The family of this 108-nucleotide RNA sequence from Alkalibacillus haloalkaliphilus is "SAM riboswitch aptamer (S box leader)". Gene Ontology term of the family: regulation of gene expression.
RNA sequence: UUCUUAUCAAGAGUGGUGGAGGGAACAGGCCCUUUGAAGCCCGGCAACCGUUAUGUUCCGCAUAAUAGGUGCUAAUUCCUACAAUGUUUACACAUUGUAAGAUAAGAU
Numbered sequence: 001u002u003c004u005u006a007u008c009a010a011g012a013g014u015g016g017u018g019g020a021g022g023g024a025a026c027a028g029g030c031c032c033u034u035u036g037a038a039g040c041c042c043g044g045c046a047a048c049c050g051u052u053a054u055g056u057u058c059c060g061c062a063u064a065a066u067a068g069g070u071g072c073u074a075a076u077u078c079c080u081a082c083a084a085u086g087u088u089u090a091c092a093c094a095u096u097g098u099a100a101g102a103u104a105a106g107a108u
Stems, first nucleotide, its partner, number of pairs: 002107007013042001015041003021032003027080003043073004048069002051065004077100001082097006
NCBI's taxonomy places the organism under Bacteria, Bacillati, Bacilli, Caryophanales, Alkalibacillus. The SAM riboswitch is found upstream of a number of genes which code for proteins involved in methionine or cysteine biosynthesis in Gram-positive bacteria.